[Rfam]
Shown here is a 144-nucleotide RNA sequence from Brassica rapa, a member of the family "small nucleolar RNA snoR134".
The family has 5 seed sequences and 792 matches in Rfam 15.1.
The literature on the family includes a 2009 paper in Nucleic Acids Res by Chen and Wu, "Mining small RNA sequencing data: a new approach to identify small nucleolar RNAs in Arabidopsis".
RNA sequence: UUGCAGGAGCCUCCCGGGCUAAUCUGAAUACAAAAACUUGAGGAAGUAAGCCCCAAAGCUCCUGCUAGAUUGUGUUUUGCCGUUUGUGUUGCAGGUUUGCCUUGACUCUCUAGGCUUUCUUGUGUCAAAAAAGCGGCUAAAUCU
Number, nucleotide and partner (000 for none) at each position: 001u000002u000003g065004c064005a063006g062007g061008a060009g059010c058011c000012u000013c000014c000015c000016g053017g052018g051019c050020u049021a047022a000023u044024c043025u042026g000027a000028a000029u000030a000031c000032a000033a000034a000035a000036a000037c000038u000039u000040g000041a000042g025043g024044a023045a000046g000047u021048a000049a020050g019051c018052c017053c016054c000055a000056a000057a000058g010059c009060u008061c007062c006063u005064g004065c003066u000067a000068g000069a000070u000071u000072g000073u000074g000075u000076u000077u000078u000079g137080c136081c135082g134083u133084u132085u131086g000087u127088g126089u000090u124091g123092c122093a121094g120095g119096u000097u000098u000099g115100c114101c113102u000103u000104g000105a000106c000107u000108c000109u000110c000111u000112a000113g101114g100115c099116u000117u000118u000119c095120u094121u093122g092123u091124g090125u000126c088127a087128a000129a000130a000131a085132a084133g083134c082135g081136g080137c079138u000139a000140a000141a000142u000143c000144u000
The family's consensus secondary structure was predicted with RNAalifold. The family's RNA type in Rfam is H/ACA-box small nucleolar RNA. The match comes from Rfam's covariance-model search (120 bits). NCBI's taxonomy places the organism under Eukaryota, Tracheophyta, Gunneridae, malvids, Brassica.